[Rfam]
The family of this 65-nucleotide sequence from Phyllobacterium endophyticum is "S-element".
It is annotated as a cis-regulatory element.
This family represents a group of S-elements from p42d and related plasmids.
The literature on the family includes a 2004 paper in Mol Microbiol by Venkova-Canova et al., "Two discrete elements are required for the replication of a repABC plasmid: an antisense RNA and a stem-loop structure".
RNA sequence: UGUCAAGCAUUAAGCGUCGUUUCGGCGAGCAGAUUUCUUUUGCCUGAUUGAGGGUAAAAGCUAUG
Number, nucleotide and partner (000 for none) at each position: 001u000002g000003u000004c000005a000006a000007g000008c000009a062010u059011u058012a000013a000014g000015c000016g055017u054018c053019g000020u052021u051022u050023c000024g048025g000026c000027g045028a000029g043030c042031a041032g040033a039034u000035u000036u000037c000038u000039u033040u032041u031042g030043c029044c000045u027046g000047a000048u024049u000050g022051a021052g020053g018054g017055u016056a000057a000058a011059a010060g000061c000062u009063a000064u000065g000